[Rfam]
RNA sequence: GUUCUUCUAUAGCAUCACGUUGAAAACCCACUUUUGGACUCUUGAAAAUAAAGGUUCCAAAAGUGGGUUUUUCACUGUGAUGCUAUAGAAGAAC
Dot-bracket structure: (((.(((..(((((((((.(.(((((((((((((((((.................))))))))))))))))).)..))))))))..)))).)))
The record is a 94-nucleotide RNA sequence from Carassius auratus, which matches "mir-16 microRNA precursor family" in Rfam. Clan: mir-15 clan. The literature on the family includes a 2002 paper in Proc Natl Acad Sci U S A by Calin et al., "Frequent deletions and down-regulation of micro- RNA genes miR15 and miR16 at 13q14 in chronic lymphocytic leukemia". The family has 14 seed sequences and 4,705 matches in Rfam 15.1. Its family is annotated with RISC complex and miRNA-mediated post-transcriptional gene silencing in the Gene Ontology. A search with the family's covariance model found it, with a score of 40 bits. Lineage of the source: Eukaryota > Deuterostomia > Actinopteri > Otomorpha > Carassius.